[Rfam]
Nucleotides: 054
Base pairs, nucleotide, nucleotide: 001037002036003035004034005033007031008030011026012025013024014023015020
Number, partner (000 for none) and nucleotide at each position: 001037c002036g003035u004034g005033u006000g007031g008030u009000g010000u011026c012025c013024g014023g015020c016000a017000u018000u019000a020015g021000a022000a023014u024013c025012g026011g027000a028000u029000a030008g031007c032000g033005a034004c035003a036002c037001g038000g039000c040000c041000u042000a043000a044000a045000c046000u047000a048000u049000u050000a051000a052000g053000g054000u